[Rfam]
RNA sequence: GCCCCCGUAGCUCAGUGGAUAGAGCAACGGUUUCCUAAACCGCAGGUCAGCCGUUCGAGUCGGCUCGGGGGUA
Numbered sequence: 001g002c003c004c005c006c007g008u009a010g011c012u013c014a015g016u017g018g019a020u021a022g023a024g025c026a027a028c029g030g031u032u033u034c035c036u037a038a039a040c041c042g043c044a045g046g047u048c049a050g051c052c053g054u055u056c057g058a059g060u061c062g063g064c065u066c067g068g069g070g071g072u073a
Base pairs, nucleotide, nucleotide: 001072002071003070004069005068006067007066010025011024012023013022028042029041030040031039049065050064051063052062053061

This 73-nucleotide sequence from Chloroflexia bacterium SDU3-3 belongs to the Rfam family "tRNA". It scores 62 bits against the family's covariance model. Rfam classes the family as a transfer RNA. NCBI's taxonomy places the organism under Bacteria, Bacillati, Chloroflexota, Chloroflexia. The literature on the family includes a 1993 paper in Trends Biochem Sci by Hou, "The tertiary structure of tRNA and the development of the genetic code".